[Rfam]
RNA sequence: CUGUACUAGAUGGGGAGGUAGCGGUGCCCUGUAACCUGCAAUCCGCUAUAGCAGGGUUGAAUUCCAGCUAGAGGUUUAUACCUUGUAGAGCAGCCCUAAAUAAGUGGUGUUGACACUUAGGUCCUGCGCAACGAAAGCUCAUGAACUCCGUCAGAUCAGGAAUGAAGCAGCGGUAAGUGAUCACUUUCGUGUGCCGUGGGGGUGCCUAAGUCGAGCUAACUGUUUAGGUAACGUCUAUGAGUUUAAAUCAAUAGUUGGUGUACAG
Numbered sequence: 001c002u003g004u005a006c007u008a009g010a011u012g013g014g015g016a017g018g019u020a021g022c023g024g025u026g027c028c029c030u031g032u033a034a035c036c037u038g039c040a041a042u043c044c045g046c047u048a049u050a051g052c053a054g055g056g057u058u059g060a061a062u063u064c065c066a067g068c069u070a071g072a073g074g075u076u077u078a079u080a081c082c083u084u085g086u087a088g089a090g091c092a093g094c095c096c097u098a099a100a101u102a103a104g105u106g107g108u109g110u111u112g113a114c115a116c117u118u119a120g121g122u123c124c125u126g127c128g129c130a131a132c133g134a135a136a137g138c139u140c141a142u143g144a145a146c147u148c149c150g151u152c153a154g155a156u157c158a159g160g161a162a163u164g165a166a167g168c169a170g171c172g173g174u175a176a177g178u179g180a181u182c183a184c185u186u187u188c189g190u191g192u193g194c195c196g197u198g199g200g201g202g203u204g205c206c207u208a209a210g211u212c213g214a215g216c217u218a219a220c221u222g223u224u225u226a227g228g229u230a231a232c233g234u235c236u237a238u239g240a241g242u243u244u245a246a247a248u249c250a251a252u253a254g255u256u257g258g259u260g261u262a263c264a265g
Stems, first nucleotide, its partner, number of pairs: 001265006009058003012030004017025001019023001035055005064258007073249005080243001082241008096227006104220002106217003115211008123200006129191002132189005137182001139180004148173004156165003